A member of the RNA family "TrxA 5' UTR thermometer" from Acerihabitans arboris, 88 nucleotides long. The source organism's lineage runs through Bacteria, Pseudomonadota, Gammaproteobacteria, Pectobacteriaceae and Acerihabitans. Rfam links the family to the GO terms regulation of translation and response to temperature stimulus. The match comes from Rfam's covariance-model search (74 bits). By type it is an RNA thermoregulator. Rfam's curators write: Involved in protection against oxidative stress.

RNA sequence: AACCCGACGUUGGUUAACCUUAAACCAGCCGGGUAAAGAUAAUCCUGUGGAGUAGAACAUGAGCGAUAAAAUUAUUCACGUAAGUGAC
Numbered sequence: 001a002a003c004c005c006g007a008c009g010u011u012g013g014u015u016a017a018c019c020u021u022a023a024a025c026c027a028g029c030c031g032g033g034u035a036a037a038g039a040u041a042a043u044c045c046u047g048u049g050g051a052g053u054a055g056a057a058c059a060u061g062a063g064c065g066a067u068a069a070a071a072u073u074a075u076u077c078a079c080g081u082a083a084g085u086g087a088c
Base pairs, nucleotide, nucleotide: 009067010066011065012064014062015061016060020055021054022053025050026049027048030047031046032045033044072087073086074085075084076083